[Rfam]
RNA sequence: GGGGCGGGCCUUUCAGGCAUCCUCUCCUAUAAACUUUGCAGGGCCGGCCUUUCGGGGUCGGCCCAUUUUUUUGUGCCCG
Numbered sequence: 001g002g003g004g005c006g007g008g009c010c011u012u013u014c015a016g017g018c019a020u021c022c023u024c025u026c027c028u029a030u031a032a033a034c035u036u037u038g039c040a041g042g043g044c045c046g047g048c049c050u051u052u053c054g055g056g057g058u059c060g061g062c063c064c065a066u067u068u069u070u071u072u073g074u075g076c077c078c079g
Stems, first nucleotide, its partner, number of pairs: 008018004041064009
RNA: Makes More Granules Regulator RNA (mmgR)